[Rfam]
RNA sequence: AAUAACCGGGGUCGGGUACCCCACAAAUU
Number, nucleotide and partner (000 for none) at each position: 001a029002a028003u027004a000005a000006c000007c000008g022009g021010g020011g019012u018013c000014g000015g000016g000017u000018a012019c011020c010021c009022c008023a000024c000025a000026a000027a003028u002029u001